[Rfam]
RNA sequence: CCCCAAUGUUCAAGUCAGGAAGCCUCCCACAAAGCAACUUUUGUUAGCCCCUAUGGGAGGUUUCCGUUACAACGUUGGGAGAUUGAAAUUUUGGCAUUUCACAACCCCUGAUCUUUACAUGUUCACUGUGUUGCAUAAUAGCUUCCGUCUUGGAAGUCUAUCCGAAAUCCAAAGGUUGCAUCGCUUUUGAGUUGAAAUUUACCAGCCGGACGGGUUUCCUUUCCUUGGCUUUUCUUUGGUUUUAUUUCAUAGUAGUGAUUCAGACAUCA
Numbered sequence: 001c002c003c004c005a006a007u008g009u010u011c012a013a014g015u016c017a018g019g020a021a022g023c024c025u026c027c028c029a030c031a032a033a034g035c036a037a038c039u040u041u042u043g044u045u046a047g048c049c050c051c052u053a054u055g056g057g058a059g060g061u062u063u064c065c066g067u068u069a070c071a072a073c074g075u076u077g078g079g080a081g082a083u084u085g086a087a088a089u090u091u092u093g094g095c096a097u098u099u100c101a102c103a104a105c106c107c108c109u110g111a112u113c114u115u116u117a118c119a120u121g122u123u124c125a126c127u128g129u130g131u132u133g134c135a136u137a138a139u140a141g142c143u144u145c146c147g148u149c150u151u152g153g154a155a156g157u158c159u160a161u162c163c164g165a166a167a168u169c170c171a172a173a174g175g176u177u178g179c180a181u182c183g184c185u186u187u188u189g190a191g192u193u194g195a196a197a198u199u200u201a202c203c204a205g206c207c208g209g210a211c212g213g214g215u216u217u218c219c220u221u222u223c224c225u226u227g228g229c230u231u232u233u234c235u236u237u238g239g240u241u242u243u244a245u246u247u248c249a250u251a252g253u254a255g256u257g258a259u260u261c262a263g264a265c266a267u268c269a
Base pairs, nucleotide, nucleotide: 003078004077005076006075007074018065019064020063021062022061023060024059025058026057027056029044030043031042032041033040089174090173091172092171093170094169101129102128103127133163137161141157142156143155144154145153146152147151176263177262178261181258182257183256184255193249194248195247196246197245201240202239203238208230209229211227212226213225214224